This 128-nucleotide RNA from Eubucco bourcierii belongs to the Rfam family "Small nucleolar RNA SNORA65". Its Rfam clan is "SNORA65 clan". U65 belongs to the H/ACA class of snoRNAs which are thought to guide the sites of modification of uridines to pseudouridines. Rfam classes the family as an H/ACA-box small nucleolar RNA. The source organism's lineage runs through Eukaryota, Deuterostomia, Archelosauria, Saurischia and Eubucco.
RNA sequence: CCUGCCACUGUGCCUGUCCUGAACCCUGUGGCUGGUACAUUCCAGUGGUGAGCUGAGAGGAACCCCAGUCAAGGAAGCAGACCUCUCCUGCUGAUGGGGAUGUCUGUGCCGAAAGGCUGGGGACAAAU
Numbered sequence: 001c002c003u004g005c006c007a008c009u010g011u012g013c014c015u016g017u018c019c020u021g022a023a024c025c026c027u028g029u030g031g032c033u034g035g036u037a038c039a040u041u042c043c044a045g046u047g048g049u050g051a052g053c054u055g056a057g058a059g060g061a062a063c064c065c066c067a068g069u070c071a072a073g074g075a076a077g078c079a080g081a082c083c084u085c086u087c088c089u090g091c092u093g094a095u096g097g098g099g100a101u102g103u104c105u106g107u108g109c110c111g112a113a114a115g116g117c118u119g120g121g122g123a124c125a126a127a128u
Stems, first nucleotide, its partner, number of pairs: 005048006018035002021032001024031002064121004069115001073110002078106005086098003